[Rfam]
The family of this 136-nucleotide RNA sequence from Hipposideros armiger is "Small nucleolar RNA SNORA42/SNORA80 family". The members of this family belong to the H/ACA class of snoRNAs that guide the sites of modification of uridines to pseudouridines. Human ACA42 (SNORA42) was cloned from HeLa cells by immunoprecipitation with anti-GAR1 antibody. It is annotated as an H/ACA-box small nucleolar RNA. A search with the family's covariance model found it, with a score of 113 bits.
RNA sequence: GCAGAGAUUUGGAUUUAUGGAUGGCCCGUCCUCCUAGGCCUCUCACAGUGCCCCAUGCCUGAGCAAACUGUGGCCCUGAACCAUUGCCUGGCCUCCAUGCCCACAGGCUGCAGGCACUGAAGUGGGCUGUCCAGUG
Numbered sequence: 001g002c003a004g005a006g007a008u009u010u011g012g013a014u015u016u017a018u019g020g021a022u023g024g025c026c027c028g029u030c031c032u033c034c035u036a037g038g039c040c041u042c043u044c045a046c047a048g049u050g051c052c053c054c055a056u057g058c059c060u061g062a063g064c065a066a067a068c069u070g071u072g073g074c075c076c077u078g079a080a081c082c083a084u085u086g087c088c089u090g091g092c093c094u095c096c097a098u099g100c101c102c103a104c105a106g107g108c109u110g111c112a113g114g115c116a117c118u119g120a121a122g123u124g125g126g127c128u129g130u131c132c133a134g135u136g
Stems, first nucleotide, its partner, number of pairs: 001058003006052001008050001015048002018045003023040002025037001071129006082119002087114002089110006
Dot-bracket structure: (((..(.(......((.(((..(((...........).))..))).)).).)...)))............((((((.....((...((((((((..........))))))..))...))....)))))).......